The family of this 75-nucleotide RNA from Methylobacterium oryzihabitans is "Makes More Granules Regulator RNA (mmgR)".
By type it is a small RNA.
The pairing is the family consensus, mapped onto this sequence.
Rfam's curators write: SuhB later renamed mmgR (makes more granules regulator) was a putative non-coding RNA found multiple times in the Agrobacterium tumefaciens genome and related alpha-proteobacteria. Other non-coding RNAs uncovered in the same analysis include: speF, ybhL, metA, and serC.Several studies inSinorhizobium meliloti showed that suhB element is indeed a non-coding RNA:firstly it was detected on Northern blot and called Sm8RNA, secondly in an RNAseq study referred to as SmelC689.The mutant phenotype's (strain lacking the small RNA) cytoplasm contains higher content of polyhydroxybutyrate (PBH)storage granules than wild type strain.
Clan: suhB sRNA clan.
RNA sequence: UCCCGCUGCCCUCCUUGGGCGUUUCCUCCCUAGACUUCGGGCCGCUCGCAAGAGCGGCCCUUUUUCUUGGCUGCG
Numbered sequence: 001u002c003c004c005g006c007u008g009c010c011c012u013c014c015u016u017g018g019g020c021g022u023u024u025c026c027u028c029c030c031u032a033g034a035c036u037u038c039g040g041g042c043c044g045c046u047c048g049c050a051a052g053a054g055c056g057g058c059c060c061u062u063u064u065u066c067u068u069g070g071c072u073g074c075g
Stems, first nucleotide, its partner, number of pairs: 008020004039060009
Dot-bracket structure: .......((((.....))))..................(((((((((....)))))))))...............